RNA sequence: AGAGUUGAUCAGGCAGUCGCUCUGUUUUGUAACAGGGAGGAAAGUCCGGGCUUCAUAGGACAAGGUGCCAGAUAACGUCUGGGAGGCGCGAGCCUACGGAAAGUGCCACAGAAAAGAUACCGCCUUUAAGGUGAUGUUUGCCUUAUUGGUAAGGGUGAAAUGGUGCGGUAAGAGCGCACCGCGUCUCUGGUAACAGGGAUGGCAGGGUAAACCCUACCUGAAGCAAGACCAAAUAGGGGAACUUUUUAAGUCAUUAUCUACGGAUAAGGAUUUAAAUAACGUGUGGUCCGCACGGUUCUCGGGUAGGUUGCUAGAGGUGUUUGGCGACAAACAUCCCAGAGGAAUGACUGCUACAGAUUUGUUUUACUUUGGUAAAACAGGUUUGACAGAACCCGGCUUACCGAUCAACUCUCAUC
Dot-bracket structure: ((((((((((.(((((((.(((((((....)))))))....[[[.[[[[[((((...[[[[.((((((((((.....)))))(((((....)))).)((...(((((............(((((..(((((((.....)))))))..)))..)).......((((((.......))))))(((((((((....)))))))).)..)))..)))))))))))))...((((......((((((.....................................(((((.]]]]))))))))))).....))))......((((((((....))))))))..........))))))).......................................]]]]]]]]...))))))))))....
RNA: Bacterial RNase P class A